Rfam assigns this 130-nucleotide RNA sequence from Coffea canephora to the family "Small nucleolar RNA snoR111". NCBI's taxonomy places the organism under Eukaryota, Streptophyta, Spermatophyta, asterids, Coffea. By type it is an H/ACA-box small nucleolar RNA. The base pairs follow the family's consensus structure, which was predicted with WAR. Rfam links the family to the GO terms nucleolus and RNA processing.

[Rfam]
RNA sequence: AAAAUGUGAGAGGCAAAAUUUGAAAGCGUGCCUCGUCAUUGAGAAGAGCAGCAGGUACAAUAAUGCUAGCGAGAUAUCGUUUCAGUCGUCAUAUCUUCAGAUUGACGAUUCGAUUGUUGCUCGUUCACAU
Number, nucleotide and partner (000 for none) at each position: 001a000002a000003a000004a000005u000006g039007u038008g037009a000010g034011a033012g032013g031014c030015a029016a000017a000018a000019u000020u000021u000022g000023a000024a000025a000026g000027c000028g000029u015030g014031c013032c012033u011034c010035g000036u000037c008038a007039u006040u000041g000042a000043g000044a000045a000046g000047a000048g000049c000050a000051g000052c000053a000054g000055g000056u000057a000058c000059a000060a000061u000062a000063a000064u000065g000066c000067u000068a125069g000070c123071g122072a121073g120074a000075u000076a114077u113078c112079g111080u000081u000082u000083c000084a000085g109086u108087c107088g106089u105090c104091a103092u000093a000094u100095c000096u000097u000098c000099a000100g094101a000102u000103u091104g090105a089106c088107g087108a086109u085110u000111c079112g078113a077114u076115u000116g000117u000118u000119g000120c073121u072122c071123g070124u000125u068126c000127a000128c000129a000130u000